A member of the RNA family "Fluoride riboswitch aptamer (crcB RNA motif)" from Kluyvera genomosp. 3, 61 nucleotides long. The organism belongs to Kluyvera, within Bacteria.
RNA sequence: AGGGCGACAGGGGAUGGCAUUCCCCUUGAACCGCCGUGUGGCUGAUGAUGCCUGUUUUUAU
Numbered sequence: 001a002g003g004g005c006g007a008c009a010g011g012g013g014a015u016g017g018c019a020u021u022c023c024c025c026u027u028g029a030a031c032c033g034c035c036g037u038g039u040g041g042c043u044g045a046u047g048a049u050g051c052c053u054g055u056u057u058u059u060a061u
Stems, first nucleotide, its partner, number of pairs: 010025004016052006033042003
Dot-bracket structure: .........[[[[..((((((]]]].......(((....)))....)))))).........